[Rfam]
RNA sequence: ACCCAAACAGAGAGAAGCCUGCCGUUUGCGUGGGGUUUCUGAUCAUGCCUAGCUUAGCCCGUCUCGCGUCCGGCCCUCUGCUUGAUUUCGAAAGCGCUGUUGCUGAUUCUCAAUUUUUUCUGGUGUGAUUCGGUUGCAGGUUGGGUUAUGCAAGUUAUGGGGUGCGAAAGACUGAAAGCAUGGUGAGAUUCAUUCCGAGUUCCUACACUGCUGACUAGAAUCGAGUGUCGACUGGACAUGAGGAUGGAAUGGGCACGGCGUCCAGAUCGGGACCCAUCUAGAGUUGGUGUCAAAGCUUAGUGCUUGUCUGAGCUGGGUAGCGCUGUACCUGUUGCCUGAUUCUUUGAAGUUGAAAUUUGUUUCUCUGGUAAGAGGUGUUUCUGGAGUGGAUGAUCUCAUGGAGGGGCUCGGAAUGUGGGCAGGCUCAUUGGGGGCAGCCCUGGGUUGUCUCUUCGGAGGCAACCCCUCCAACUUUUGGGG
Numbered sequence: 001a002c003c004c005a006a007a008c009a010g011a012g013a014g015a016a017g018c019c020u021g022c023c024g025u026u027u028g029c030g031u032g033g034g035g036u037u038u039c040u041g042a043u044c045a046u047g048c049c050u051a052g053c054u055u056a057g058c059c060c061g062u063c064u065c066g067c068g069u070c071c072g073g074c075c076c077u078c079u080g081c082u083u084g085a086u087u088u089c090g091a092a093a094g095c096g097c098u099g100u101u102g103c104u105g106a107u108u109c110u111c112a113a114u115u116u117u118u119u120c121u122g123g124u125g126u127g128a129u130u131c132g133g134u135u136g137c138a139g140g141u142u143g144g145g146u147u148a149u150g151c152a153a154g155u156u157a158u159g160g161g162g163u164g165c166g167a168a169a170g171a172c173u174g175a176a177a178g179c180a181u182g183g184u185g186a187g188a189u190u191c192a193u194u195c196c197g198a199g200u201u202c203c204u205a206c207a208c209u210g211c212u213g214a215c216u217a218g219a220a221u222c223g224a225g226u227g228u229c230g231a232c233u234g235g236a237c238a239u240g241a242g243g244a245u246g247g248a249a250u251g252g253g254c255a256c257g258g259c260g261u262c263c264a265g266a267u268c269g270g271g272a273c274c275c276a277u278c279u280a281g282a283g284u285u286g287g288u289g290u291c292a293a294a295g296c297u298u299a300g301u302g303c304u305u306g307u308c309u310g311a312g313c314u315g316g317g318u319a320g321c322g323c324u325g326u327a328c329c330u331g332u333u334g335c336c337u338g339a340u341u342c343u344u345u346g347a348a349g350u351u352g353a354a355a356u357u358u359g360u361u362u363c364u365c366u367g368g369u370a371a372g373a374g375g376u377g378u379u380u381c382u383g384g385a386g387u388g389g390a391u392g393a394u395c396u397c398a399u400g401g402a403g404g405g406g407c408u409c410g411g412a413a414u415g416u417g418g419g420c421a422g423g424c425u426c427a428u429u430g431g432g433g434g435c436a437g438c439c440c441u442g443g444g445u446u447g448u449c450u451c452u453u454c455g456g457a458g459g460c461a462a463c464c465c466c467u468c469c470a471a472c473u474u475u476u477g478g479g480g
Stems, first nucleotide, its partner, number of pairs: 271291003274287003293305004
This 480-nucleotide part of an RNA from Lachnellula arida belongs to the Rfam family "Ascomycota telomerase RNA". The family is grouped with related families in Rfam's "Telomerase clan". Rfam classes the family as a non-coding RNA gene. NCBI's taxonomy places the organism under Eukaryota, Dikarya, Ascomycota, Helotiales, Lachnellula. The match comes from Rfam's covariance-model search (106 bits). On this family, see Qi et al., Nucleic Acids Res 2013: "The common ancestral core of vertebrate and fungal telomerase RNAs". Rfam 15.1 lists 475 matches to the family in 456 species.